[Rfam]
RNA sequence: UGUUGAAUGAUGAUAAAAUCAUUCGGAUUCCCAAUGAUAUUAUAUAUAUGAUCUUACAAUUAAGUCUGACAACA
Numbered sequence: 001u002g003u004u005g006a007a008u009g010a011u012g013a014u015a016a017a018a019u020c021a022u023u024c025g026g027a028u029u030c031c032c033a034a035u036g037a038u039a040u041u042a043u044a045u046a047u048a049u050g051a052u053c054u055u056a057c058a059a060u061u062a063a064g065u066c067u068g069a070c071a072a073c074a
Base pairs, nucleotide, nucleotide: 001074002073003072004071005070